RNA sequence: CAGAGAAGGAAGUAUGGUUAACGUGCACAUAAAUUGAAUUGCGUCUCUAGGCUUGCCUUCUCUAAUGCCAUUUGGUUUUGAUUUAGGGGCAUGGUUCCACAGCAAAAUA
Number, nucleotide and partner (000 for none) at each position: 001c000002a000003g000004a000005g000006a000007a000008g000009g000010a000011a000012g026013u025014a024015u023016g000017g000018u000019u000020a000021a000022c000023g015024u014025g013026c012027a000028c000029a000030u000031a000032a000033a000034u000035u000036g000037a000038a000039u000040u000041g092042c000043g090044u089045c088046u000047c000048u000049a000050g000051g082052c000053u080054u000055g076056c075057c074058u000059u000060c000061u000062c000063u000064a000065a000066u000067g000068c000069c000070a000071u000072u000073u000074g057075g056076u055077u000078u000079u000080g053081a000082u051083u000084u000085a000086g000087g000088g045089g044090c043091a000092u041093g000094g000095u000096u000097c000098c000099a000100c000101a000102g000103c000104a000105a000106a000107a000108u000109a000

Record summary: Rfam assigns this 109-nucleotide RNA sequence from Rhododendron simsii to the family "Small nucleolar RNA snoR100". It is annotated as an H/ACA-box small nucleolar RNA. Rfam 15.1 lists 1,851 matches to the family in 220 species. For this family Rfam cites "Experimental RNomics: identification of 140 candidates for small non-messenger RNAs in the plant Arabidopsis thaliana" (Marker et al., Curr Biol, 2002). Rfam links the family to the GO terms nucleolus and RNA processing.